[Rfam]
RNA: Nuclear RNase P
Organism: Blastobotrys ciferrii
RNA sequence: GGCCACUGGGGUUGAUCGCGCUUACCCGGAUACUAAAGAGAAACGCGCGUUUCUCGCUACUGCUGGGUGGGAAAUUCGGUGAAUCUCUUCUCUCUGAAAUACUAUCUGCUCCUGAGAGCGCGCACGCGGAAGCGUGCUGCUGGCACCAUCAGAAAUCAGCCGGGCCUCGGCCCGGCAUGGGAACGGUGCUGCGAGAGAUUGGCCGUGGUUGGCCUUGAGUGCAAUGCGCGAUCCAGUUACGGCUGGAACCCGAUACCGAUUACAACCCUAGUGGCC
Numbered sequence: 001g002g003c004c005a006c007u008g009g010g011g012u013u014g015a016u017c018g019c020g021c022u023u024a025c026c027c028g029g030a031u032a033c034u035a036a037a038g039a040g041a042a043a044c045g046c047g048c049g050u051u052u053c054u055c056g057c058u059a060c061u062g063c064u065g066g067g068u069g070g071g072a073a074a075u076u077c078g079g080u081g082a083a084u085c086u087c088u089u090c091u092c093u094c095u096g097a098a099a100u101a102c103u104a105u106c107u108g109c110u111c112c113u114g115a116g117a118g119c120g121c122g123c124a125c126g127c128g129g130a131a132g133c134g135u136g137c138u139g140c141u142g143g144c145a146c147c148a149u150c151a152g153a154a155a156u157c158a159g160c161c162g163g164g165c166c167u168c169g170g171c172c173c174g175g176c177a178u179g180g181g182a183a184c185g186g187u188g189c190u191g192c193g194a195g196a197g198a199u200u201g202g203c204c205g206u207g208g209u210u211g212g213c214c215u216u217g218a219g220u221g222c223a224a225u226g227c228g229c230g231a232u233c234c235a236g237u238u239a240c241g242g243c244u245g246g247a248a249c250c251c252g253a254u255a256c257c258g259a260u261u262a263c264a265a266c267c268c269u270a271g272u273g274g275c276c
Stems, first nucleotide, its partner, number of pairs: 001276004007270003013231001016228001024068005039054006077258005085197004107120005122137006141191007159176003233246005